Mammalian CPEB3 ribozyme: a 70-nucleotide RNA sequence from Alligator sinensis. The base pairs follow the family's consensus structure, which is taken from published work.
[Rfam]
RNA sequence: AGAGAUAGGCCAUAGCAGAAGUGCUCACAACGCAGCCCUGUCAGAUUCCAGCAAAUCUGCAAAUUCUGCU
Dot-bracket structure: .......[[[...((((((((((.......))).]]]....((((((......))))))....)))))))

The organism belongs to Alligator, within Eukaryota. A search with the family's covariance model found it, with a score of 53 bits.